[Rfam]
RNA sequence: AUAAAGUAGGCUGAAACGGAGUGCUUUGCGCACGGGCUUAAUCAAUCG
Numbered sequence: 001a002u003a004a005a006g007u008a009g010g011c012u013g014a015a016a017c018g019g020a021g022u023g024c025u026u027u028g029c030g031c032a033c034g035g036g037c038u039u040a041a042u043c044a045a046u047c048g
Base pairs, nucleotide, nucleotide: 008039009038010037011036012035021033022032023031024030
ssnA RNA: a 48-nucleotide RNA from bacterium 1XD42-8. The match comes from Rfam's covariance-model search (48 bits). By type it is a cis-regulatory element. Pairs were carried over by alignment from the consensus structure, which is taken from published work.